[Rfam]
RNA: Group II catalytic intron D1-D4-3
RNA sequence: UCUAUCGCGAGGUAGAAUCUGAAGGAAGCUGUAAGCAAAUCUCUGGUCCGACGAACAGAAAUCACAUAUAAGGCUAGGCUACGAGAGAUAAGUUGGCGUGAAGCAACGAAGUCUAAUAACUAUCACCUUUGGCUGUUCGUUUCGUUACGGAUGGAAUGGAUAUAUU
Numbered sequence: 001u002c003u004a005u006c007g008c009g010a011g012g013u014a015g016a017a018u019c020u021g022a023a024g025g026a027a028g029c030u031g032u033a034a035g036c037a038a039a040u041c042u043c044u045g046g047u048c049c050g051a052c053g054a055a056c057a058g059a060a061a062u063c064a065c066a067u068a069u070a071a072g073g074c075u076a077g078g079c080u081a082c083g084a085g086a087g088a089u090a091a092g093u094u095g096g097c098g099u100g101a102a103g104c105a106a107c108g109a110a111g112u113c114u115a116a117u118a119a120c121u122a123u124c125a126c127c128u129u130u131g132g133c134u135g136u137u138c139g140u141u142u143c144g145u146u147a148c149g150g151a152u153g154g155a156a157u158g159g160a161u162a163u164a165u166u
Stems, first nucleotide, its partner, number of pairs: 001016006028166001030164003036158001042155004047151004062147001064145002073140002078137001081136002084134002086114004092107004